[Rfam]
Shown here is a 119-nucleotide sequence from Burkholderia glumae, a member of the family "Glycine riboswitch aptamer". It scores 39 bits against the family's covariance model. About the family: This family represents the bacterial glycine riboswitch. Glycine riboswitches usually consist of two metabolite-binding aptamers domains with similar structures in tandem. The aptamers cooperatively bind glycine to regulate the expression of downstream genes. In Bacillus subtilis, this riboswitch is found upstream of the gcvT operon which controls glycine degradation. Taxonomically the source falls in Burkholderia glumae (Bacteria, Pseudomonadati, Pseudomonadota, Burkholderiaceae).

RNA sequence: AGUUCGGACUCUGGAGAGCGGCAGUAGCCACGUGCAUCGGCAGGCUGCCCACCGAAGGGGCGCGCGCGGGCCGGUCACGGCGGCGCAAUCUCUCAGGUAUCGAGGACAGAGGGGCUGUC
Numbered sequence: 001a002g003u004u005c006g007g008a009c010u011c012u013g014g015a016g017a018g019c020g021g022c023a024g025u026a027g028c029c030a031c032g033u034g035c036a037u038c039g040g041c042a043g044g045c046u047g048c049c050c051a052c053c054g055a056a057g058g059g060g061c062g063c064g065c066g067c068g069g070g071c072c073g074g075u076c077a078c079g080g081c082g083g084c085g086c087a088a089u090c091u092c093u094c095a096g097g098u099a100u101c102g103a104g105g106a107c108a109g110a111g112g113g114g115c116u117g118u119c
Base pairs, nucleotide, nucleotide: 009111010110011109012108013107020049021048022047023046024045025044051098052097053096054094055093058092059091060090
Dot-bracket structure: ........(((((......((((((..................)))))).(((((..(((.............................))))).)))........)))))........